A member of the RNA family "c-di-GMP-I-GGC riboswitch aptamer" from Desulfatitalea alkaliphila, 101 nucleotides long.

RNA sequence: CGAGAAAAAGCCAAACCUGUCGCGAGAUAGGGACGGAAAACCACGGGUCUCAUAGGGGCAAGCGCCACAGACCUCGUCGUGAGAAAGCCGAGUUGCCUUGG
Numbered sequence: 001c002g003a004g005a006a007a008a009a010g011c012c013a014a015a016c017c018u019g020u021c022g023c024g025a026g027a028u029a030g031g032g033a034c035g036g037a038a039a040a041c042c043a044c045g046g047g048u049c050u051c052a053u054a055g056g057g058g059c060a061a062g063c064g065c066c067a068c069a070g071a072c073c074u075c076g077u078c079g080u081g082a083g084a085a086a087g088c089c090g091a092g093u094u095g096c097c098u099u100g101g
Base pairs, nucleotide, nucleotide: 001101003098004097011036012035016031017030018029019028020027021026034087039094040093041092044090045089046088048084049083050082051081052080053079

The source organism's lineage runs through Bacteria, Pseudomonadati, Desulfobacteria, Desulfobacterales and Desulfatitalea.